[Rfam]
RNA sequence: UUAAUAUUUCGGUAGGUGAGGUUACCACAAGGAUAAGGGUUGCUGCCGCAAAAUAGUGGAGACACUAUGAGAAGGUUAGCAGUCUAUGUCGAAGCCAAGGCAUAGACUAAUGCAAUUUCAUCGCCUUGUGAAGCUGAAGCUUGUACGAUGAUGAAGCAGUUU
Numbered sequence: 001u002u003a004a005u006a007u008u009u010c011g012g013u014a015g016g017u018g019a020g021g022u023u024a025c026c027a028c029a030a031g032g033a034u035a036a037g038g039g040u041u042g043c044u045g046c047c048g049c050a051a052a053a054u055a056g057u058g059g060a061g062a063c064a065c066u067a068u069g070a071g072a073a074g075g076u077u078a079g080c081a082g083u084c085u086a087u088g089u090c091g092a093a094g095c096c097a098a099g100g101c102a103u104a105g106a107c108u109a110a111u112g113c114a115a116u117u118u119c120a121u122c123g124c125c126u127u128g129u130g131a132a133g134c135u136g137a138a139g140c141u142u143g144u145a146c147g148a149u150g151a152u153g154a155a156g157c158a159g160u161u162u
Base pairs, nucleotide, nucleotide: 005158007156008155009154010153011146013098015141016140017139020135021134022133026130027129028128029127030126031125032124039116040115041114042113043112045076046075047074055066056065057064058063082107083106084105085104088101089100090099
RNA: M-box riboswitch aptamer (ykoK leader)